CRISPR RNA direct repeat element: a 30-nucleotide RNA sequence from Actinomadura craniellae.
RNA sequence: GUUGCUAUCCCUCCAGGGAUGAUCUGCGGC
Numbered sequence: 001g002u003u004g005c006u007a008u009c010c011c012u013c014c015a016g017g018g019a020u021g022a023u024c025u026g027c028g029g030c
Base pairs, nucleotide, nucleotide: 001030002029003028004027005026007020008019009018010017011016

NCBI's taxonomy places the organism under Bacteria, Actinomycetota, Streptosporangiales, Thermomonosporaceae, Actinomadura. Pairs were carried over by alignment from the consensus structure, which was predicted with WAR.